Source information: This 260-nucleotide sequence from Oceanospirillales bacterium LUC14_002_19_P2 belongs to the Rfam family "Lysine riboswitch aptamer". Rfam 15.1 lists 3,224 matches to the family in 1,923 species. From the family's description: Riboswitches are metabolite binding domains within certain messenger RNAs that serve as precision sensors for their corresponding targets. NCBI's taxonomy places the organism under Bacteria, Pseudomonadati, Pseudomonadota, Gammaproteobacteria, Oceanospirillales.
[Rfam]
RNA sequence: CCUCUUGGUAGAGGCGCGGUGCUUAAGAGUAACAGGAAGUAGGGUGACGCCCGAGAUCUCCUGUGAAAGGAAACACCGCCGAAGCCGUUCAAGCGAGUCAGCGCCAUCGGCUGGUGUGUCGUUUAAGAGACGCCACACUGUCACGGUGUAUUCUGCAGGCAAUUGUCUGCGGUACACAUGCCAUUAGGUGUAAUCCGUCAUCGUCUGCUUGUCGCGAUGAGAGCUGAUGGAUGCCGGGUCCGUGGAGUGCUACCGCUGUG
Numbered sequence: 001c002c003u004c005u006u007g008g009u010a011g012a013g014g015c016g017c018g019g020u021g022c023u024u025a026a027g028a029g030u031a032a033c034a035g036g037a038a039g040u041a042g043g044g045u046g047a048c049g050c051c052c053g054a055g056a057u058c059u060c061c062u063g064u065g066a067a068a069g070g071a072a073a074c075a076c077c078g079c080c081g082a083a084g085c086c087g088u089u090c091a092a093g094c095g096a097g098u099c100a101g102c103g104c105c106a107u108c109g110g111c112u113g114g115u116g117u118g119u120c121g122u123u124u125a126a127g128a129g130a131c132g133c134c135a136c137a138c139u140g141u142c143a144c145g146g147u148g149u150a151u152u153c154u155g156c157a158g159g160c161a162a163u164u165g166u167c168u169g170c171g172g173u174a175c176a177c178a179u180g181c182c183a184u185u186a187g188g189u190g191u192a193a194u195c196c197g198u199c200a201u202c203g204u205c206u207g208c209u210u211g212u213c214g215c216g217a218u219g220a221g222a223g224c225u226g227a228u229g230g231a232u233g234c235c236g237g238g239u240c241c242g243u244g245g246a247g248u249g250c251u252a253c254c255g256c257u258g259u260g
Stems, first nucleotide, its partner, number of pairs: 006255006016079006023072002032064006039057001083112005089106001093102002113139006120132004141245006